[Rfam]
RNA sequence: CCCCAGUCAGAAGUGAGCUUAUUCAUAAAAGUGCAGUAUCAUCCAGUAAGUCUGUAACUUUAUGUAUAAGCUGAUCUCUGACUGAA
Numbered sequence: 001c002c003c004c005a006g007u008c009a010g011a012a013g014u015g016a017g018c019u020u021a022u023u024c025a026u027a028a029a030a031g032u033g034c035a036g037u038a039u040c041a042u043c044c045a046g047u048a049a050g051u052c053u054g055u056a057a058c059u060u061u062a063u064g065u066a067u068a069a070g071c072u073g074a075u076c077u078c079u080g081a082c083u084g085a086a
Stems, first nucleotide, its partner, number of pairs: 004084008013075002016072007024064006032056005
The record is an 86-nucleotide RNA from Octodon degus, which matches "mir-590 microRNA precursor family" in Rfam. NCBI's taxonomy places the organism under Eukaryota, Deuterostomia, Vertebrata, Rodentia, Octodon. For this family Rfam cites "Conservation of small RNA pathways in platypus" (Murchison et al., Genome Res, 2008).